[Rfam]
RNA sequence: UUAGCUGGCUGAAGCCGGGCCAAAUCGUCAUAAUUCCUAUGAAAAGGAAUCUCAAUACAUUUGGUCCCCUUCAACCAGCUGUGGUUG
Number, nucleotide and partner (000 for none) at each position: 001u000002u000003a080004g079005c078006u077007g076008g075009c000010u073011g072012a071013a070014g000015c000016c000017g066018g065019g000020c064021c063022a062023a061024a060025u059026c000027g000028u000029c000030a000031u000032a000033a000034u000035u000036c000037c000038u000039a000040u000041g000042a000043a000044a000045a000046g000047g000048a000049a000050u000051c000052u000053c000054a000055a000056u000057a000058c000059a025060u024061u023062u022063g021064g020065u018066c017067c000068c000069c000070u013071u012072c011073a010074a000075c008076c007077a006078g005079c004080u003081g000082u000083g000084g000085u000086u000087g000
RNA: mir-133 microRNA precursor family